[Rfam]
RNA: Group II catalytic intron D1-D4-2
Organism: Paenibacillus sp. Leaf72
RNA sequence: GAAGGCGGGCCCUUCGGAGCCGCUGUACAGGCGGAGGCUUCAAACCACCUUAAGCUGCUGCGGUCAAAAGCCGUGGUGGUGAGCGUUAAGGAAAAAGGCAGAGCAAGACUCUGUCAGGU
Numbered sequence: 001g002a003a004g005g006c007g008g009g010c011c012c013u014u015c016g017g018a019g020c021c022g023c024u025g026u027a028c029a030g031g032c033g034g035a036g037g038c039u040u041c042a043a044a045c046c047a048c049c050u051u052a053a054g055c056u057g058c059u060g061c062g063g064u065c066a067a068a069a070g071c072c073g074u075g076g077u078g079g080u081g082a083g084c085g086u087u088a089a090g091g092a093a094a095a096a097g098g099c100a101g102a103g104c105a106a107g108a109c110u111c112u113g114u115c116a117g118g119u
Base pairs, nucleotide, nucleotide: 001015002014003013004012005011016041017040018039019038020037021036023034024033025032026031046118048091049090050089051088052087053086054080055079057077058076059075061073062072063071064070097115098114099113100112101111102110